[Rfam]
RNA: Group II catalytic intron D1-D4-1
Organism: Pseudomonas aeruginosa
RNA sequence: CGCAUGACGGGGCAACUCGGCAUGUGAUUAAGCAGAAGUCAGCAGACGGCAUAGUAGCCCAACGCCUAUCGUAAUGGAUGGGAUAUGGUGAAGGCC
Numbered sequence: 001c002g003c004a005u006g007a008c009g010g011g012g013c014a015a016c017u018c019g020g021c022a023u024g025u026g027a028u029u030a031a032g033c034a035g036a037a038g039u040c041a042g043c044a045g046a047c048g049g050c051a052u053a054g055u056a057g058c059c060c061a062a063c064g065c066c067u068a069u070c071g072u073a074a075u076g077g078a079u080g081g082g083a084u085a086u087g088g089u090g091a092a093g094g095c096c
Stems, first nucleotide, its partner, number of pairs: 001026002004023003008019004038047003048096003057089003068084002